[Rfam]
RNA sequence: UGCUUAUACAGAAGAGUGGAGAGAUCGGGCUCUGUGAAACUCUGGCAACCAUGUUCGGCAACCGGCGGACAAAAAGGUGCCAAUACCUGGCCGGAAACGGAAUUAUAAUUA
Numbered sequence: 001u002g003c004u005u006a007u008a009c010a011g012a013a014g015a016g017u018g019g020a021g022a023g024a025u026c027g028g029g030c031u032c033u034g035u036g037a038a039a040c041u042c043u044g045g046c047a048a049c050c051a052u053g054u055u056c057g058g059c060a061a062c063c064g065g066c067g068g069a070c071a072a073a074a075a076g077g078u079g080c081c082a083a084u085a086c087c088u089g090g091c092c093g094g095a096a097a098c099g100g101a102a103u104u105a106u107a108a109u110u111a
Stems, first nucleotide, its partner, number of pairs: 001111002004108005013043005021032003026089004044081004049077002052072001085103001091100003